RNA sequence: UCAGCAUCUAUGAUGAUAGAUAUAAAAUUAUCAUCCUUGCACUUUGAUUUUCCAUGAAGAAACCCAUGGGGGAAUUGUCUUCUGAGAUGCUU
Numbered sequence: 001u002c003a004g005c006a007u008c009u010a011u012g013a014u015g016a017u018a019g020a021u022a023u024a025a026a027a028u029u030a031u032c033a034u035c036c037u038u039g040c041a042c043u044u045u046g047a048u049u050u051u052c053c054a055u056g057a058a059g060a061a062a063c064c065c066a067u068g069g070g071g072g073a074a075u076u077g078u079c080u081u082c083u084g085a086g087a088u089g090c091u092u
Stems, first nucleotide, its partner, number of pairs: 003091006